[Rfam]
RNA sequence: CAAAUUAGAAUGCCUAAUUCCCGAUCGGGAAACGGGGGAACCAUUUUUGGGUGAAUUGAUUUCGACGAUCGCGCAGCGGUCGCCUGAGAAAUCAUAGGGUACCUUCAACCGAACCCCACAGCUAACCUCGUCGGCACCGGAAGGAGUUUCA
Numbered sequence: 001c002a003a004a005u006u007a008g009a010a011u012g013c014c015u016a017a018u019u020c021c022c023g024a025u026c027g028g029g030a031a032a033c034g035g036g037g038g039a040a041c042c043a044u045u046u047u048u049g050g051g052u053g054a055a056u057u058g059a060u061u062u063c064g065a066c067g068a069u070c071g072c073g074c075a076g077c078g079g080u081c082g083c084c085u086g087a088g089a090a091a092u093c094a095u096a097g098g099g100u101a102c103c104u105u106c107a108a109c110c111g112a113a114c115c116c117c118a119c120a121g122c123u124a125a126c127c128u129c130g131u132c133g134g135c136a137c138c139g140g141a142a143g144g145a146g147u148u149u150c151a
Stems, first nucleotide, its partner, number of pairs: 011136004018031003032131006043047001049116003057094007097110002100107001

Shown here is a 151-nucleotide RNA from Paenibacillus nanensis, a member of the family "c-di-AMP riboswitch aptamer (ydaO/yuaA leader)".
Taxonomically the source falls in Paenibacillus (Bacteria, Bacillota, Bacilli, Paenibacillaceae).
The match comes from Rfam's covariance-model search (73 bits).
About the family: This family represents a conserved RNA structure found upstream of the ydaO and yuaA genes in Bacillus subtilis and related genes in other bacteria.